[Rfam]
RNA sequence: UUUAUUGCUGAUGCAGCAUCAUCAAGAUUCUCACUUUCAAAAAGCCAUAGCCGGACAUUAAUUUCAUGAUUUCACCAGUUAAUUAACCACCUUGCCCUUUGCAUGUGAAUUUUGAUGGUGCUACAUCCGCAAACAA
Numbered sequence: 001u002u003u004a005u006u007g008c009u010g011a012u013g014c015a016g017c018a019u020c021a022u023c024a025a026g027a028u029u030c031u032c033a034c035u036u037u038c039a040a041a042a043a044g045c046c047a048u049a050g051c052c053g054g055a056c057a058u059u060a061a062u063u064u065c066a067u068g069a070u071u072u073c074a075c076c077a078g079u080u081a082a083u084u085a086a087c088c089a090c091c092u093u094g095c096c097c098u099u100u101g102c103a104u105g106u107g108a109a110u111u112u113u114g115a116u117g118g119u120g121c122u123a124c125a126u127c128c129g130c131a132a133a134c135a136a
Base pairs, nucleotide, nucleotide: 010127011126012125013124015122016121017120018119019118020117021116022115023114024113025112026111027110028109029108030107032105033104

This 136-nucleotide sequence from Anisodus acutangulus belongs to the Rfam family "mir-172 microRNA precursor family". Rfam links the family to the GO terms miRNA-mediated post-transcriptional gene silencing and RISC complex. On this family, see Mette et al., Plant Physiol 2002: "Short RNAs can identify new candidate transposable element families in Arabidopsis". The family has 11 seed sequences and 2,076 matches in Rfam 15.1. The organism belongs to Anisodus, within Eukaryota. Rfam's curators write: mir-172 has been experimentally verified in Arabidopsis thaliana. This family is thought to target mRNAs coding for APETALA2-like transcription factors.